Background:
Shown here is a 117-nucleotide sequence from Danaus plexippus, a member of the family "U5 spliceosomal RNA". Rfam classes the family as a spliceosomal small nuclear RNA. A search with the family's covariance model found it, with a score of 95 bits.
[Rfam]
RNA sequence: AUAUACUGGUUUCCCUUCAAAACGUAUAAAUCUUUCGCCUUUUACUAAAGAUUUCCGUGGAGGGGAACACUCAAAUGAGUCUAAACAAUAUUUUUGAAGUCCUCACUUUGUGAGGUU
Numbered sequence: 001a002u003a004u005a006c007u008g009g010u011u012u013c014c015c016u017u018c019a020a021a022a023c024g025u026a027u028a029a030a031u032c033u034u035u036c037g038c039c040u041u042u043u044a045c046u047a048a049a050g051a052u053u054u055c056c057g058u059g060g061a062g063g064g065g066a067a068c069a070c071u072c073a074a075a076u077g078a079g080u081c082u083a084a085a086c087a088a089u090a091u092u093u094u095u096g097a098a099g100u101c102c103u104c105a106c107u108u109u110g111u112g113a114g115g116u117u
Base pairs, nucleotide, nucleotide: 003080004079006077009068010067011066012065013064014063015062016061017060018059019058028054029053030052031051032050033049034048035047098117101115102114103113104112105111